[Rfam]
RNA sequence: AUAAAUCUUCAGGGCAGGGUGAAAUUCCCUACCGGCGGUAAAGCCCGCGAGCCGUAAGGCAGAUUCGGUGAAACUCCGAGGCCGACAGUACAGUCUGGAUGGAAGAAGAUUGAA
Numbered sequence: 001a002u003a004a005a006u007c008u009u010c011a012g013g014g015c016a017g018g019g020u021g022a023a024a025u026u027c028c029c030u031a032c033c034g035g036c037g038g039u040a041a042a043g044c045c046c047g048c049g050a051g052c053c054g055u056a057a058g059g060c061a062g063a064u065u066c067g068g069u070g071a072a073a074c075u076c077c078g079a080g081g082c083c084g085a086c087a088g089u090a091c092a093g094u095c096u097g098g099a100u101g102g103a104a105g106a107a108g109a110u111u112g113a114a
Base pairs, nucleotide, nucleotide: 004111005110006109007108008107009106010105017029018028019027031094032093033084034083035048036047037046038045043082044081051060052059053058064080065079066078067077068076086097087096088095